[Rfam]
RNA sequence: CGAGUGAGCCGUGGUUAAGGAACUCGGCAAAUUAACCCCGUACGUUCGCAAGAAGGGGUGCCUCGAGUAGGUGAGACUUUUUACAGGUCAAGCCGAAAGAGGCCGCAGUGAAAAGGCCCAAGCGACUGUUUAACAAAAACACAUGUCUCUGCGAAGUCAAUUAAGACGACGUAUAGGGACUGACACCUGCCCGGUGCUGGAAGGUUAAGGGGAGGGGUUAUCCGUCUUUGACGGAGAAGCUCUGAACCGAAGCCCCAGUAAACGGCGGCCGUAACUAUAACGGUCCUAAGGUAGCGAAAUUCCUUGUCGGGUAAGUUCCGACCUGCACGAAUGGUGUAACGAUUUGGGCACUGUCUCAACCACGGGCUCG
Numbered sequence: 001c002g003a004g005u006g007a008g009c010c011g012u013g014g015u016u017a018a019g020g021a022a023c024u025c026g027g028c029a030a031a032u033u034a035a036c037c038c039c040g041u042a043c044g045u046u047c048g049c050a051a052g053a054a055g056g057g058g059u060g061c062c063u064c065g066a067g068u069a070g071g072u073g074a075g076a077c078u079u080u081u082u083a084c085a086g087g088u089c090a091a092g093c094c095g096a097a098a099g100a101g102g103c104c105g106c107a108g109u110g111a112a113a114a115g116g117c118c119c120a121a122g123c124g125a126c127u128g129u130u131u132a133a134c135a136a137a138a139a140c141a142c143a144u145g146u147c148u149c150u151g152c153g154a155a156g157u158c159a160a161u162u163a164a165g166a167c168g169a170c171g172u173a174u175a176g177g178g179a180c181u182g183a184c185a186c187c188u189g190c191c192c193g194g195u196g197c198u199g200g201a202a203g204g205u206u207a208a209g210g211g212g213a214g215g216g217g218u219u220a221u222c223c224g225u226c227u228u229u230g231a232c233g234g235a236g237a238a239g240c241u242c243u244g245a246a247c248c249g250a251a252g253c254c255c256c257a258g259u260a261a262a263c264g265g266c267g268g269c270c271g272u273a274a275c276u277a278u279a280a281c282g283g284u285c286c287u288a289a290g291g292u293a294g295c296g297a298a299a300u301u302c303c304u305u306g307u308c309g310g311g312u313a314a315g316u317u318c319c320g321a322c323c324u325g326c327a328c329g330a331a332u333g334g335u336g337u338a339a340c341g342a343u344u345u346g347g348g349c350a351c352u353g354u355c356u357c358a359a360c361c362a363c364g365g366g367c368u369c370g
Base pairs, nucleotide, nucleotide: 001370002369003368004367009365010364011363012362013361014360015359016358018356019355020354035059036058037057038056039055044049060103061102062101063100064099104108116349117348118347119346120345121344122343123341124340127141128140129139145180146179147178148177149176150175151174152171156167157166158165184336185335186334187333189266190265191264194263195262196259197258198257199256200255203254204253205252209248210247214243215242216241217240218239221235222234223233224232225231226230267285268284269283270282271281272280286290296323306322307321308320309319310318311317
A member of the RNA family "Bacterial large subunit ribosomal RNA" from Melioribacter roseus, 370 nucleotides of a longer RNA.